[Rfam]
RNA sequence: AAAAAAGCAGGGCCUUGCUGCCUUUGUGAGCUGGACUCUCGUAAACUUCAGGAAGAUUGAUUCCAUUGUUAUUGGGUGAACCUAUGUACCUGUAUUAGUGACUGAAGGUUCAGUAAAUGAUGGAACAUUU
Numbered sequence: 001a002a003a004a005a006a007g008c009a010g011g012g013c014c015u016u017g018c019u020g021c022c023u024u025u026g027u028g029a030g031c032u033g034g035a036c037u038c039u040c041g042u043a044a045a046c047u048u049c050a051g052g053a054a055g056a057u058u059g060a061u062u063c064c065a066u067u068g069u070u071a072u073u074g075g076g077u078g079a080a081c082c083u084a085u086g087u088a089c090c091u092g093u094a095u096u097a098g099u100g101a102c103u104g105a106a107g108g109u110u111c112a113g114u115a116a117a118u119g120a121u122g123g124a125a126c127a128u129u130u
Stems, first nucleotide, its partner, number of pairs: 005048003011037002014034002017031001062124009077112007
The family of this 130-nucleotide RNA sequence from Nyssa sinensis is "Small nucleolar RNA snoR74". By type it is an H/ACA-box small nucleolar RNA. The source organism's lineage runs through Eukaryota, Streptophyta, Streptophytina, Gunneridae and Nyssa. The base pairs follow the family's consensus structure, which was predicted with WAR.